[Rfam]
PyrR binding site: a 117-nucleotide sequence from Bacillus subtilis. Gene Ontology terms of the family: pyrimidine nucleobase transport and pyrimidine nucleobase biosynthetic process. Rfam classes the family as a cis-regulatory element.
RNA sequence: AGAUUCUUUAAAACAGUCCAGAGAGGCUGAGAAGGAUAACGGAUAGACGGGAUGCGUGUAUAGGCGCGCACCUUGUCCUAAAACCCCUCUAUGCUCUGGCAGGAGGGGUUUUUUCUU
Numbered sequence: 001a002g003a004u005u006c007u008u009u010a011a012a013a014c015a016g017u018c019c020a021g022a023g024a025g026g027c028u029g030a031g032a033a034g035g036a037u038a039a040c041g042g043a044u045a046g047a048c049g050g051g052a053u054g055c056g057u058g059u060a061u062a063g064g065c066g067c068g069c070a071c072c073u074u075g076u077c078c079u080a081a082a083a084c085c086c087c088u089c090u091a092u093g094c095u096c097u098g099g100c101a102g103g104a105g106g107g108g109u110u111u112u113u114u115c116u117u
Base pairs, nucleotide, nucleotide: 003037004036005035006034007033008032009031014029015028016027017026018025046077047076048075049074050073051072053070054069055068056067057066058065059064080112081111082110083109084108085107086106087105088104089103092101093100094099
A reference for the family is Bonner et al. (2001), "Molecular recognition of pyr mRNA by the Bacillus subtilis attenuation regulatory protein PyrR", Nucleic Acids Res.
Taxonomically the source falls in Bacillus subtilis subsp. subtilis (Bacteria, Bacillota, Bacilli, Caryophanales).
The sequence is in the family's curated seed alignment.